RNA sequence: GUAGGCUAUGGAGAUAUCUACCCCAAAACACUUUUAGGUAAAAUAGUAGGAGGACUGUGCUGCAUUGCUGGAGUGCUGGUUAUAGCCCUGCCUAUACCAAUUAUUGUGAACAAU
Number, nucleotide and partner (000 for none) at each position: 001g114002u113003a000004g111005g000006c000007u108008a107009u106010g105011g104012a000013g102014a101015u100016a000017u000018c000019u096020a095021c000022c000023c000024c000025a000026a000027a000028a000029c000030a000031c000032u000033u000034u000035u000036a000037g077038g076039u075040a074041a000042a000043a000044u000045a000046g000047u000048a000049g063050g000051a061052g000053g000054a000055c000056u000057g000058u000059g000060c000061u051062g000063c049064a000065u000066u000067g000068c000069u000070g000071g000072a000073g000074u040075g039076c038077u037078g000079g000080u000081u000082a000083u000084a000085g000086c000087c000088c000089u000090g000091c000092c000093u000094a000095u020096a019097c000098c000099a000100a015101u014102u013103a000104u011105u010106g009107u008108g007109a000110a000111c004112a000113a002114u001
The record is a 114-nucleotide sequence from Coturnix japonica, which matches "Potassium channel RNA editing signal" in Rfam. Gene Ontology term of the family: adenosine to inosine editing. The match comes from Rfam's covariance-model search (86 bits). Pairs were carried over by alignment from the consensus structure, which is taken from published work. By type it is a cis-regulatory element. NCBI's taxonomy places the organism under Eukaryota, Sauria, Archelosauria, Galloanserae, Coturnix.